[Rfam]
RNA sequence: CUGGUAUGAUGCAAAAUUAGCCAAAUCAGACAUUUAUGUGCUCCUAAAGGCUUUCUCUCUAGGCUUUGCAUAUAAGUGGUGCUUUUUGGUGAAAUUUCCUGUCUUGGGGAUUUUUGCUAAGCAUACAAUGAGAGAAACCUUUGGUCGAAGCACAUAUCUCUGAUGAUAACAGCGAGAUUGGUUACUUGCUGACCAGA
Numbered sequence: 001c002u003g004g005u006a007u008g009a010u011g012c013a014a015a016a017u018u019a020g021c022c023a024a025a026u027c028a029g030a031c032a033u034u035u036a037u038g039u040g041c042u043c044c045u046a047a048a049g050g051c052u053u054u055c056u057c058u059c060u061a062g063g064c065u066u067u068g069c070a071u072a073u074a075a076g077u078g079g080u081g082c083u084u085u086u087u088g089g090u091g092a093a094a095u096u097u098c099c100u101g102u103c104u105u106g107g108g109g110a111u112u113u114u115u116g117c118u119a120a121g122c123a124u125a126c127a128a129u130g131a132g133a134g135a136a137a138c139c140u141u142u143g144g145u146c147g148a149a150g151c152a153c154a155u156a157u158c159u160c161u162g163a164u165g166a167u168a169a170c171a172g173c174g175a176g177a178u179u180g181g182u183u184a185c186u187u188g189c190u191g192a193c194c195a196g197a
Stems, first nucleotide, its partner, number of pairs: 001196004
Rfam assigns this 197-nucleotide RNA sequence from Ensete ventricosum to the family "small nucleolar RNA snoR127". Lineage of the source: Eukaryota > Viridiplantae > Magnoliopsida > Zingiberales > Ensete. Rfam links the family to the GO terms nucleolus and RNA processing. Rfam classes the family as a C/D-box small nucleolar RNA. It scores 39 bits against the family's covariance model. The family's consensus secondary structure was predicted with RNAalifold.